[Rfam]
RNA: ODC internal ribosome entry site (IRES)
RNA sequence: AUUUCCACUGCUGCACCGGGGGCACACGCAUCUUCCCCAGGACUUGGAAUUCCGGAGAAUUGCCUUUGUGAGAAGCUGGCAGUAAUUUCUUUAAAUUCCAUCUCUUAGUUUUCCAUGUAAGUAUUCGUGGUUGUUAAGAAUUA
Numbered sequence: 001a002u003u004u005c006c007a008c009u010g011c012u013g014c015a016c017c018g019g020g021g022g023c024a025c026a027c028g029c030a031u032c033u034u035c036c037c038c039a040g041g042a043c044u045u046g047g048a049a050u051u052c053c054g055g056a057g058a059a060u061u062g063c064c065u066u067u068g069u070g071a072g073a074a075g076c077u078g079g080c081a082g083u084a085a086u087u088u089c090u091u092u093a094a095a096u097u098c099c100a101u102c103u104c105u106u107a108g109u110u111u112u113c114c115a116u117g118u119a120a121g122u123a124u125u126c127g128u129g130g131u132u133g134u135u136a137a138g139a140a141u142u143a
Base pairs, nucleotide, nucleotide: 006079010076011075012074014072016070017068018067019066020065021064022063023062024061026060040053041052042051084142085141087140088139089138090137091136097130098129